[Rfam]
RNA: Small nucleolar RNA Z279/snoR105/snoR108
RNA sequence: GGGAUGUGAUGAGUGGUCAAUGCUCGCAAAUAAAAUACUACAGUAUGCGAGAAGGGUGUCACAGACCAAAUCCUGGUUACGACAAUCUGGGCGCUCUCACUUUUGCCAAUCUGAUCCC
Numbered sequence: 001g002g003g004a005u006g007u008g009a010u011g012a013g014u015g016g017u018c019a020a021u022g023c024u025c026g027c028a029a030a031u032a033a034a035a036u037a038c039u040a041c042a043g044u045a046u047g048c049g050a051g052a053a054g055g056g057u058g059u060c061a062c063a064g065a066c067c068a069a070a071u072c073c074u075g076g077u078u079a080c081g082a083c084a085a086u087c088u089g090g091g092c093g094c095u096c097u098c099a100c101u102u103u104u105g106c107c108a109a110u111c112u113g114a115u116c117c118c
Stems, first nucleotide, its partner, number of pairs: 001118004014109001016107001018105001023051005053097008075087003